[Rfam]
RNA: Singlet oxygen resistance RNA X
Organism: Roseivivax sp. THAF197b
RNA sequence: AGCCGUCGCAUGUGCGGACCCUCACAUGCACCUCCCUGUUGGACUAGCCCGGGCCUUUGAGCCCGGGUUUUUUU
Numbered sequence: 001a002g003c004c005g006u007c008g009c010a011u012g013u014g015c016g017g018a019c020c021c022u023c024a025c026a027u028g029c030a031c032c033u034c035c036c037u038g039u040u041g042g043a044c045u046a047g048c049c050c051g052g053g054c055c056u057u058u059g060a061g062c063c064c065g066g067g068u069u070u071u072u073u074u
Stems, first nucleotide, its partner, number of pairs: 008029007047068008